Overview:
A member of the RNA family "antisense RNA of dnaA mRNA" from Idiomarina loihiensis, 81 nucleotides long. It scores 73 bits against the family's covariance model. The organism belongs to Idiomarina loihiensis, within Bacteria.
RNA sequence: CUUGGCGUCCUUUUUGUGCGCCAUAAUGCCAUUACCGACCGCAUGCAAAAGGUGAGUCUUACCCAAGCCGGUACCACCAUA
Number, nucleotide and partner (000 for none) at each position: 001c000002u000003u000004g000005g042006c041007g040008u000009c000010c037011u000012u000013u034014u000015u000016g032017u031018g030019c000020g029021c028022c000023a000024u000025a000026a000027u000028g021029c020030c018031a017032u016033u000034a013035c000036c000037g010038a000039c000040c007041g006042c005043a000044u000045g000046c000047a000048a000049a000050a000051g078052g077053u076054g075055a000056g074057u073058c000059u000060u000061a072062c071063c070064c000065a000066a000067g000068c000069c000070g063071g062072u061073a057074c056075c054076a053077c052078c051079a000080u000081a000